[Rfam]
RNA: MIR1435 microRNA precursor family
Organism: Oryza meyeriana
RNA sequence: UAGUUUUAUUCUAAGUCAAACUUCUCUAACUUUGAUCGAAUUUAUAGAAAAAUGCACCAAUAUCUACAAUGGGGCAAAUUGCAAUAUCUCCCAACAGAUAAAUACACUACCAAGACAUAUUUCAUGAUGGAUUUAACGAAACUAAUUUGAUGUUGUAGAUGUUGGUGUAUUUUUCUAUAAAUUUGGCCAAAGUUUGAAAAGUUUGACUUAGGAGAAAACUAA
Numbered sequence: 001u002a003g004u005u006u007u008a009u010u011c012u013a014a015g016u017c018a019a020a021c022u023u024c025u026c027u028a029a030c031u032u033u034g035a036u037c038g039a040a041u042u043u044a045u046a047g048a049a050a051a052a053u054g055c056a057c058c059a060a061u062a063u064c065u066a067c068a069a070u071g072g073g074g075c076a077a078a079u080u081g082c083a084a085u086a087u088c089u090c091c092c093a094a095c096a097g098a099u100a101a102a103u104a105c106a107c108u109a110c111c112a113a114g115a116c117a118u119a120u121u122u123c124a125u126g127a128u129g130g131a132u133u134u135a136a137c138g139a140a141a142c143u144a145a146u147u148u149g150a151u152g153u154u155g156u157a158g159a160u161g162u163u164g165g166u167g168u169a170u171u172u173u174u175c176u177a178u179a180a181a182u183u184u185g186g187c188c189a190a191a192g193u194u195u196g197a198a199a200a201g202u203u204u205g206a207c208u209u210a211g212g213a214g215a216a217a218a219c220u221a222a
Base pairs, nucleotide, nucleotide: 005217006216007215009213011211012210013209014208015207016206017205018204019203020202021201022200023199025197026196031191032190033189034188045177046176047175048174049173050172051171052170055167056166057165059163060162061161062160063159064158065157066156067155068154075149076148077147078146079145080144081143